[Rfam]
RNA: transfer-messenger RNA
RNA sequence: GGGGCUGAUUCAGGAUUCGACGAGAUUCUCGAACUCCAAGGUGCAUGCCGAGGUGCGAUAGGCCUCGUUAAACAAUCGCAAAAAAAUAGUCGCAAACGACGAAAACUACGCACUGGCAGCUUAAUAACCUGCGCAGAGCCCUUCUGCCCUAACUUGCCUGUGACUUAGGGAAUCGGAAGGUCAUCCUUCACAGGAUCGCGUGGAUGCCGUGCCUGACGGUUGAAGCGUUAAAACCAAUUCAGGAUAGUCUGUCUGUGGCGUGUCAGUCCGCAGCAGCUGGCGAAUUUAAUGACUGACUAAGCAUGUAGUACCGACGACGUAGGUUUUUCGGACGCGGGUUCAACUCCCGCCAGCUCCACCA
Numbered sequence: 001g002g003g004g005c006u007g008a009u010u011c012a013g014g015a016u017u018c019g020a021c022g023a024g025a026u027u028c029u030c031g032a033a034c035u036c037c038a039a040g041g042u043g044c045a046u047g048c049c050g051a052g053g054u055g056c057g058a059u060a061g062g063c064c065u066c067g068u069u070a071a072a073c074a075a076u077c078g079c080a081a082a083a084a085a086a087u088a089g090u091c092g093c094a095a096a097c098g099a100c101g102a103a104a105a106c107u108a109c110g111c112a113c114u115g116g117c118a119g120c121u122u123a124a125u126a127a128c129c130u131g132c133g134c135a136g137a138g139c140c141c142u143u144c145u146g147c148c149c150u151a152a153c154u155u156g157c158c159u160g161u162g163a164c165u166u167a168g169g170g171a172a173u174c175g176g177a178a179g180g181u182c183a184u185c186c187u188u189c190a191c192a193g194g195a196u197c198g199c200g201u202g203g204a205u206g207c208c209g210u211g212c213c214u215g216a217c218g219g220u221u222g223a224a225g226c227g228u229u230a231a232a233a234c235c236a237a238u239u240c241a242g243g244a245u246a247g248u249c250u251g252u253c254u255g256u257g258g259c260g261u262g263u264c265a266g267u268c269c270g271c272a273g274c275a276g277c278u279g280g281c282g283a284a285u286u287u288a289a290u291g292a293c294u295g296a297c298u299a300a301g302c303a304u305g306u307a308g309u310a311c312c313g314a315c316g317a318c319g320u321a322g323g324u325u326u327u328u329c330g331g332a333c334g335c336g337g338g339u340u341c342a343a344c345u346c347c348c349g350c351c352a353g354c355u356c357c358a359c360c361a
Stems, first nucleotide, its partner, number of pairs: 001357007021330005028323002035317002040312003044305005049067005054080006113136003116132004140180006147170006154163001157194006199227003212243004247281003251277001253276004258271003262297007334350005
Dot-bracket structure: (((((((.............(((((..((.....((...(((.((((([[[[[((((((...]]]]].......))))))................................(((((((.........)))).)))...((((((.((((((.(..[[[[[[).))))))....))))))........]]]]]]....[[[..........((((.........]]]............))))...[[[.[.[[[[.[[[.(((((((]]].]]]]].]]].........)))))))...)))))....)))...))....))..)))))...(((((.......))))))))))))....